[Rfam]
RNA sequence: AAAAAAAUAGGGCUGUCCAUCAUAGACAGCCCUUCUUCCUCGAACCCUGAGAUUCAAGAAAGUAAAGGGAGAGGAGAAACCGGAGGAAGUACUUAUGGGGAUGUAAGCCUUCUCCGUUU
Number, nucleotide and partner (000 for none) at each position: 001a000002a000003a000004a000005a000006a000007a000008u000009a000010g000011g031012g030013c029014u028015g027016u026017c025018c000019a023020u000021c000022a000023u019024a000025g017026a016027c015028a014029g013030c012031c011032c000033u069034u068035c067036u066037u065038c000039c000040u057041c000042g055043a054044a053045c000046c000047c000048u000049g000050a000051g000052a000053u044054u043055c042056a000057a040058g000059a000060a000061a000062g000063u000064a000065a037066a036067g035068g034069g033070a000071g000072a000073g000074g000075a000076g000077a000078a000079a000080c000081c116082g115083g114084a113085g000086g112087a111088a110089g109090u000091a000092c107093u106094u105095a104096u000097g000098g000099g000100g000101a000102u000103g000104u095105a094106a093107g092108c000109c089110u088111u087112c086113u084114c083115c082116g081117u000118u000119u000